[Rfam]
RNA sequence: AUCGGCGAAGGGAAAUCACACACACGCUCCGGCACAUGGCUCUGGGUGCCCCAGCGUCCUUCGGGACGCUCCUUCGGGAAGGGGGUUGAGUCAUGGGGGGCGUGGAGGCCUAAC
Numbered sequence: 001a002u003c004g005g006c007g008a009a010g011g012g013a014a015a016u017c018a019c020a021c022a023c024a025c026g027c028u029c030c031g032g033c034a035c036a037u038g039g040c041u042c043u044g045g046g047u048g049c050c051c052c053a054g055c056g057u058c059c060u061u062c063g064g065g066a067c068g069c070u071c072c073u074u075c076g077g078g079a080a081g082g083g084g085g086u087u088g089a090g091u092c093a094u095g096g097g098g099g100g101c102g103u104g105g106a107g108g109c110c111u112a113a114c
Stems, first nucleotide, its partner, number of pairs: 023104008035095008048086005
RNA: t44 RNA